[Rfam]
RNA sequence: GUUCACCUGUGUGUGGAUGGUGUUCAGCACCAAGGACAGGCAUGUUUGCAUGUGUGUGGACGGUGUUAAGCACCAAGGACAGGUGUGUUCAUCU
Numbered sequence: 001g002u003u004c005a006c007c008u009g010u011g012u013g014u015g016g017a018u019g020g021u022g023u024u025c026a027g028c029a030c031c032a033a034g035g036a037c038a039g040g041c042a043u044g045u046u047u048g049c050a051u052g053u054g055u056g057u058g059g060a061c062g063g064u065g066u067u068a069a070g071c072a073c074c075a076a077g078g079a080c081a082g083g084u085g086u087g088u089u090c091a092u093c094u
Base pairs, nucleotide, nucleotide: 004085005084006083007082008081009080010079018075019074020073021072022071023070024069026067027066028065029064030063031062034055036053037052038051040049041048042047
Overview
Shown here is a 94-nucleotide RNA from Branchiostoma belcheri, a member of the family "mir-2060 microRNA precursor family". Rfam 15.1 lists 3,696 matches to the family in 4 species. The source organism's lineage runs through Eukaryota, Opisthokonta, Metazoa, Leptocardii and Branchiostoma.